RNA: Glycine riboswitch aptamer
RNA sequence: GACGCCACGUCGGGAGAACCAGCUAGGCUGGUGCCGAAGGAGCAACCGCCCCGGAAACUCUCAGGCCAAACGGACCGACGUUGCUGA
Numbered sequence: 001g002a003c004g005c006c007a008c009g010u011c012g013g014g015a016g017a018a019c020c021a022g023c024u025a026g027g028c029u030g031g032u033g034c035c036g037a038a039g040g041a042g043c044a045a046c047c048g049c050c051c052c053g054g055a056a057a058c059u060c061u062c063a064g065g066c067c068a069a070a071c072g073g074a075c076c077g078a079c080g081u082u083g084c085u086g087a
Stems, first nucleotide, its partner, number of pairs: 007081007019031004033066003036062002040060003046054002